[Rfam]
RNA sequence: GGCGACUCCCAUAAUGGUGUAGUCCCCCAGCCCGGAGCUACUUUACAUAUUCCGAAUCA
Numbered sequence: 001g002g003c004g005a006c007u008c009c010c011a012u013a014a015u016g017g018u019g020u021a022g023u024c025c026c027c028c029a030g031c032c033c034g035g036a037g038c039u040a041c042u043u044u045a046c047a048u049a050u051u052c053c054g055a056a057u058c059a
Base pairs, nucleotide, nucleotide: 016044017043019041020040021039022038023037025035026034